[Rfam]
RNA: MIR6217 microRNA precursor family
RNA sequence: CUAGCAUAGAAUAACUUAUUCUGUGGCCACCUUGAGUUAUGAUAAUUACCAUGUUAAUUUAUAAGAUUACAGUAACUCCUUACUAAGUGAUUUACUAUAACAUUUAGCCUGUUCGCUUGCUCGUAAACGAUCGUAAAUUUCCAGCCAGGAACAGUGUUUUUCUCUCACACCAAACCAGCCAGCAGUAAAUAAUCCACGAUACGAUACGGCCUCCCGAACAGGCUGAUUAUCGUAAAUAUCACCGUGAGUUGUAGUAACAUGAGUAUCGUAGAUAUGUAUUCAUAUUAUCGUAAAUUAAUACAAAUAUUAUUGUAAAUCAACGUGGCUAUAGAAUAAGUUAUUAG
Numbered sequence: 001c002u003a004g005c006a007u008a009g010a011a012u013a014a015c016u017u018a019u020u021c022u023g024u025g026g027c028c029a030c031c032u033u034g035a036g037u038u039a040u041g042a043u044a045a046u047u048a049c050c051a052u053g054u055u056a057a058u059u060u061a062u063a064a065g066a067u068u069a070c071a072g073u074a075a076c077u078c079c080u081u082a083c084u085a086a087g088u089g090a091u092u093u094a095c096u097a098u099a100a101c102a103u104u105u106a107g108c109c110u111g112u113u114c115g116c117u118u119g120c121u122c123g124u125a126a127a128c129g130a131u132c133g134u135a136a137a138u139u140u141c142c143a144g145c146c147a148g149g150a151a152c153a154g155u156g157u158u159u160u161u162c163u164c165u166c167a168c169a170c171c172a173a174a175c176c177a178g179c180c181a182g183c184a185g186u187a188a189a190u191a192a193u194c195c196a197c198g199a200u201a202c203g204a205u206a207c208g209g210c211c212u213c214c215c216g217a218a219c220a221g222g223c224u225g226a227u228u229a230u231c232g233u234a235a236a237u238a239u240c241a242c243c244g245u246g247a248g249u250u251g252u253a254g255u256a257a258c259a260u261g262a263g264u265a266u267c268g269u270a271g272a273u274a275u276g277u278a279u280u281c282a283u284a285u286u287a288u289c290g291u292a293a294a295u296u297a298a299u300a301c302a303a304a305u306a307u308u309a310u311u312g313u314a315a316a317u318c319a320a321c322g323u324g325g326c327u328a329u330a331g332a333a334u335a336a337g338u339u340a341u342u343a344g
Stems, first nucleotide, its partner, number of pairs: 010342021032320002037315010052300011065289003069285001071283001072281001074279001080271004087266003091262002093256009103246001